[Rfam]
RNA sequence: GCAGACUCACUCUGUUUUUUGCUGUCCUCUCCAGUCCAGAACUUUUUCUGUCUGCUACAUUAAUGGCUUGAGUAUGUCAACUACUGGUUUUCUCUGAAAAUCCGGUGCUGAUAUGUUCUGCAACACAUGC
Numbered sequence: 001g002c003a004g005a006c007u008c009a010c011u012c013u014g015u016u017u018u019u020u021g022c023u024g025u026c027c028u029c030u031c032c033a034g035u036c037c038a039g040a041a042c043u044u045u046u047u048c049u050g051u052c053u054g055c056u057a058c059a060u061u062a063a064u065g066g067c068u069u070g071a072g073u074a075u076g077u078c079a080a081c082u083a084c085u086g087g088u089u090u091u092c093u094c095u096g097a098a099a100a101u102c103c104g105g106u107g108c109u110g111a112u113a114u115g116u117u118c119u120g121c122a123a124c125a126c127a128u129g130c
Stems, first nucleotide, its partner, number of pairs: 001055006014042005022034003068120001070118010082107005
Small nucleolar RNA SNORA77: a 130-nucleotide RNA from Muraenolepis orangiensis. From the family's description: ACA63 (SNORA77) is a member of the H/ACA class of snoRNAs that guide the sites of modification of uridines to pseudouridines. This snoRNA was identified by computational screening and its expression in mouse experimentally verified by Northern blot and primer extension analysis. ACA63 is proposed to guide the pseudouridylation of 18S rRNA U814. Its family is annotated with RNA processing and nucleolus in the Gene Ontology. It is annotated as an H/ACA-box small nucleolar RNA. A reference for the family is Schattner et al. (2006), "A computational screen for mammalian pseudouridylation guide H/ACA RNAs", RNA. It scores 49 bits against the family's covariance model. The organism belongs to Muraenolepis, within Eukaryota.